Shown here is a 73-nucleotide RNA sequence from Candidatus Symbiobacter mobilis, a member of the family "tRNA".
Rfam's curators write: Transfer RNA (tRNA) molecules are approximately 80 nucleotides in length. Their secondary structure includes four short double-helical elements and three loops (D, anti-codon, and T loops). Further hydrogen bonds mediate the characteristic L-shaped molecular structure. tRNAs have two regions of fundamental functional importance: the anti-codon, which is responsible for specific mRNA codon recognition, and the 3' end, to which the tRNAs corresponding amino acid is attached (by aminoacyl-tRNA synthetases). tRNAs cope with the degeneracy of the genetic code in two manners: having more than one tRNA (with a specific anti-codon) for a particular amino acid; and 'wobble' base-pairing, i.e. permitting non-standard base-pairing at the 3rd anti-codon position.
Lineage of the source: Bacteria > Pseudomonadati > Pseudomonadota > Comamonadaceae > Candidatus Symbiobacter mobilis.

[Rfam]
RNA sequence: GCCGGUGUAGCUCAGUCGGUAGAGCAGCUCAUUCGUAAUGAGAAGGUCGGCGGUUCGAUUCCGUCUACCGGCA
Numbered sequence: 001g002c003c004g005g006u007g008u009a010g011c012u013c014a015g016u017c018g019g020u021a022g023a024g025c026a027g028c029u030c031a032u033u034c035g036u037a038a039u040g041a042g043a044a045g046g047u048c049g050g051c052g053g054u055u056c057g058a059u060u061c062c063g064u065c066u067a068c069c070g071g072c073a
Stems, first nucleotide, its partner, number of pairs: 001072007010025004028042004049065005
It scores 67 bits against the family's covariance model. The family's consensus secondary structure is taken from published work. Rfam links the family to the GO term triplet codon-amino acid adaptor activity.